[Rfam]
RNA sequence: AUUCUGGAAAUCGGCCACUACCUUGCAUUCACGUGAUGGAAAAACGCAGGUGUCACUGAUCCGGAUUUAAUGGGUGAUUUAUCCUACAUACCGAAUUCAGUGUCGUUUUGUGUUUUUUAACUUGAAUAGUUCAUGUGAUGUGACGUAGUGGAACAUACCUGGAA
Numbered sequence: 001a002u003u004c005u006g007g008a009a010a011u012c013g014g015c016c017a018c019u020a021c022c023u024u025g026c027a028u029u030c031a032c033g034u035g036a037u038g039g040a041a042a043a044a045c046g047c048a049g050g051u052g053u054c055a056c057u058g059a060u061c062c063g064g065a066u067u068u069a070a071u072g073g074g075u076g077a078u079u080u081a082u083c084c085u086a087c088a089u090a091c092c093g094a095a096u097u098c099a100g101u102g103u104c105g106u107u108u109u110g111u112g113u114u115u116u117u118u119a120a121c122u123u124g125a126a127u128a129g130u131u132c133a134u135g136u137g138a139u140g141u142g143a144c145g146u147a148g149u150g151g152a153a154c155a156u157a158c159c160u161g162g163a164a
Stems, first nucleotide, its partner, number of pairs: 003163005010156001015151007023143004029138004034133003
A member of the RNA family "mir-989 microRNA precursor family" from Drosophila rhopaloa, 164 nucleotides long.